[Rfam]
RNA sequence: UGGCGCCCAACGUGGGACCUGAGUACGAGGGGUCCAGUGAAGAACACCGAUCGAAUAUAAGAAGAAGAUGAAAAAGUAGAGGCCGAAGUUUAAAGAAUUUCCAGGGAGACGGCUACGCGGGAAUCUGCUGCGUAGUUCAGGGCUCAGGUAAGUGAUCGGAAAUUAUGGGGCAGGAAAUAAGCGAACAUGAGACCUUUGUAAAUGGUCUGACAGAGACCCUAAGGGCACGGGGAGUAAAGGUUAAGAAAAAGCAAUUAUUGGAAUUUUUUCAGUUCCUCCAUGAAGUCUGUCCUU
Numbered sequence: 001u002g003g004c005g006c007c008c009a010a011c012g013u014g015g016g017a018c019c020u021g022a023g024u025a026c027g028a029g030g031g032g033u034c035c036a037g038u039g040a041a042g043a044a045c046a047c048c049g050a051u052c053g054a055a056u057a058u059a060a061g062a063a064g065a066a067g068a069u070g071a072a073a074a075a076g077u078a079g080a081g082g083c084c085g086a087a088g089u090u091u092a093a094a095g096a097a098u099u100u101c102c103a104g105g106g107a108g109a110c111g112g113c114u115a116c117g118c119g120g121g122a123a124u125c126u127g128c129u130g131c132g133u134a135g136u137u138c139a140g141g142g143c144u145c146a147g148g149u150a151a152g153u154g155a156u157c158g159g160a161a162a163u164u165a166u167g168g169g170g171c172a173g174g175a176a177a178u179a180a181g182c183g184a185a186c187a188u189g190a191g192a193c194c195u196u197u198g199u200a201a202a203u204g205g206u207c208u209g210a211c212a213g214a215g216a217c218c219c220u221a222a223g224g225g226c227a228c229g230g231g232g233a234g235u236a237a238a239g240g241u242u243a244a245g246a247a248a249a250a251g252c253a254a255u256u257a258u259u260g261g262a263a264u265u266u267u268u269u270c271a272g273u274u275c276c277u278c279c280a281u282g283a284a285g286u287c288u289g290u291c292c293u294u
Base pairs, nucleotide, nucleotide: 006031007030008029012026013025014024035049037047038046096144098142099140111138112136113135116132117131118130119129120128152171153170156168157167158166178221179220181217229269230268231267232266233265234264235263238256239255241253280293282291283290
This 294-nucleotide RNA sequence from Suricata suricatta belongs to the Rfam family "Mason-Pfizer monkey virus packaging signal". The base pairs follow the family's consensus structure, which was predicted with PFOLD.